[Rfam]
RNA sequence: UAGAAUAAUGUAGGUAAGGGAAGUCGGCAACAUAGAUCCGUAACUUCGGGAAAAGGAUUGGCUCUGAGGAAUGGGCACAUGAAGACCAGAAGAGUGGUAGGUUGGAACGAGUAUGGGUUCGCCUCGGUGGGCCCGUGUUUGAGCCGGCCUCGUUCUCUUUUGGAGCCCUUGCGCAAUUAACAUUCGACUCAGAACUGCUACGGACUCGGGGAAUCUGACUGUCUAAUUAAAACAUAGCAUUGUGAUGGCCUAAAUAUGGUGUUGACACAAUGUGAUUUCUGCCCAGUGCUCUGAAUGUCAAAGUGAAGAAAUUCAACCAAGCGCGGGUAAACGGCGGGAGUAACUAUGACUCUCUUAAGGUAGCCAAAUGCCUCGUCAUCUAAUUAGUGACGCGCAUGAAUGGAUUAACGAGAUUCCCACUGUCCCUAUCUACUAUCUAGCGAAACCACAGCCAAGGGAACGGGCUUGGCA
Numbered sequence: 001u002a003g004a005a006u007a008a009u010g011u012a013g014g015u016a017a018g019g020g021a022a023g024u025c026g027g028c029a030a031c032a033u034a035g036a037u038c039c040g041u042a043a044c045u046u047c048g049g050g051a052a053a054a055g056g057a058u059u060g061g062c063u064c065u066g067a068g069g070a071a072u073g074g075g076c077a078c079a080u081g082a083a084g085a086c087c088a089g090a091a092g093a094g095u096g097g098u099a100g101g102u103u104g105g106a107a108c109g110a111g112u113a114u115g116g117g118u119u120c121g122c123c124u125c126g127g128u129g130g131g132c133c134c135g136u137g138u139u140u141g142a143g144c145c146g147g148c149c150u151c152g153u154u155c156u157c158u159u160u161u162g163g164a165g166c167c168c169u170u171g172c173g174c175a176a177u178u179a180a181c182a183u184u185c186g187a188c189u190c191a192g193a194a195c196u197g198c199u200a201c202g203g204a205c206u207c208g209g210g211g212a213a214u215c216u217g218a219c220u221g222u223c224u225a226a227u228u229a230a231a232a233c234a235u236a237g238c239a240u241u242g243u244g245a246u247g248g249c250c251u252a253a254a255u256a257u258g259g260u261g262u263u264g265a266c267a268c269a270a271u272g273u274g275a276u277u278u279c280u281g282c283c284c285a286g287u288g289c290u291c292u293g294a295a296u297g298u299c300a301a302a303g304u305g306a307a308g309a310a311a312u313u314c315a316a317c318c319a320a321g322c323g324c325g326g327g328u329a330a331a332c333g334g335c336g337g338g339a340g341u342a343a344c345u346a347u348g349a350c351u352c353u354c355u356u357a358a359g360g361u362a363g364c365c366a367a368a369u370g371c372c373u374c375g376u377c378a379u380c381u382a383a384u385u386a387g388u389g390a391c392g393c394g395c396a397u398g399a400a401u402g403g404a405u406u407a408a409c410g411a412g413a414u415u416c417c418c419a420c421u422g423u424c425c426c427u428a429u430c431u432a433c434u435a436u437c438u439a440g441c442g443a444a445a446c447c448a449c450a451g452c453c454a455a456g457g458g459a460a461c462g463g464g465c466u467u468g469g470c471a
Stems, first nucleotide, its partner, number of pairs: 001439004010433007018425003035059005044049001060196002063193006069185005075174002078171002081168001086163003090159004099150007108141015197201001209418007216410002220234003237273008248260003277404003281335003286332002288328004293324001296323003304315004336354006355359001375391005452469005
Rfam assigns this 471-nucleotide part of an RNA from Hesseltinella vesiculosa to the family "Eukaryotic large subunit ribosomal RNA".
A search with the family's covariance model found it, with a score of 3175 bits.